[Rfam]
RNA: FMN riboswitch aptamer (RFN element)
RNA sequence: AUGUGCUCCGGGGUCGGUGAAAAUCCGAGCCGGCGGUGAUAGUCCGCGACCCACACCAAUGCAGUUCGUUGGGGUGGUUGACUCAGUGAAACUCUGAGACCGACGGUGAAAGUCCGGAUGGGAGGAAGCACUC
Numbered sequence: 001a002u003g004u005g006c007u008c009c010g011g012g013g014u015c016g017g018u019g020a021a022a023a024u025c026c027g028a029g030c031c032g033g034c035g036g037u038g039a040u041a042g043u044c045c046g047c048g049a050c051c052c053a054c055a056c057c058a059a060u061g062c063a064g065u066u067c068g069u070u071g072g073g074g075u076g077g078u079u080g081a082c083u084c085a086g087u088g089a090a091a092c093u094c095u096g097a098g099a100c101c102g103a104c105g106g107u108g109a110a111a112g113u114c115c116g117g118a119u120g121g122g123a124g125g126a127a128g129c130a131c132u133c
Stems, first nucleotide, its partner, number of pairs: 003131005008125002015027003029113002031102002033047004042100002051077004082098005104116003